[Rfam]
RNA sequence: CGGAGCAUCUUACGGGACAGGGAUUAGACACAUACGUAAAAAUCUAAUACUGUCACGUAAGGAUGCUUCG
Numbered sequence: 001c002g003g004a005g006c007a008u009c010u011u012a013c014g015g016g017a018c019a020g021g022g023a024u025u026a027g028a029c030a031c032a033u034a035c036g037u038a039a040a041a042a043u044c045u046a047a048u049a050c051u052g053u054c055a056c057g058u059a060a061g062g063a064u065g066c067u068u069c070g
Base pairs, nucleotide, nucleotide: 002069003068004067005066006065007064008063009062010060011059012058013057014056016054017053018052019051020050022048024047025046026045027044028043
RNA: mir-8/mir-141/mir-200 microRNA precursor family
Organism: Rhodamnia argentea